[Rfam]
The record is a 190-nucleotide RNA sequence from Schizosaccharomyces cryophilus, which matches "small nucleolar RNA snR99" in Rfam.
Its family is annotated with RNA processing and nucleolus in the Gene Ontology.
NCBI's taxonomy places the organism under Eukaryota, Opisthokonta, Dikarya, Schizosaccharomycetaceae, Schizosaccharomyces cryophilus.

RNA sequence: CCAUCAUCAGUAGGAUUUAACUUACUUUGUUAUAUAAGUAAAGUAAAUUCAAACCUGAAGUCAAGUAUGAUGGUUGGAGUCUUAGGACGAAGAAAAUGCAUCCGUUCCGUCUUCAGUGAUGAAUUGAGUAGCCAUCCCGGUCGUUGAUUGUUUCCCAUCCUUCAAGGGUGGGGUGGUUUCUCGUACAUUU
Dot-bracket structure: ............(((((((..((((((........))))))..)))))))....((((((.(......(((((((...(((....)))......))).))))......).))))))...........(.(((...((((..(.((((..(........)..)))).).))))...))).)..........